[Rfam]
The record is an 86-nucleotide RNA from Medicago truncatula, which matches "MIR2617 microRNA precursor family" in Rfam. It scores 56 bits against the family's covariance model. Gene Ontology terms of the family: RISC complex and miRNA-mediated post-transcriptional gene silencing. Taxonomically the source falls in Medicago (Eukaryota, Streptophytina, Tracheophyta, Euphyllophyta).
RNA sequence: AAAGUAUGUGACAUGCCCGUUUUGGAAAUACUGUGAUGUAUGAUUAUUUAUUAUUUAAUUGUUUUGGGUAACGGGGUGUUACACUU
Numbered sequence: 001a002a003a004g005u006a007u008g009u010g011a012c013a014u015g016c017c018c019g020u021u022u023u024g025g026a027a028a029u030a031c032u033g034u035g036a037u038g039u040a041u042g043a044u045u046a047u048u049u050a051u052u053a054u055u056u057a058a059u060u061g062u063u064u065u066g067g068g069u070a071a072c073g074g075g076g077u078g079u080u081a082c083a084c085u086u
Stems, first nucleotide, its partner, number of pairs: 004086001007083008016075006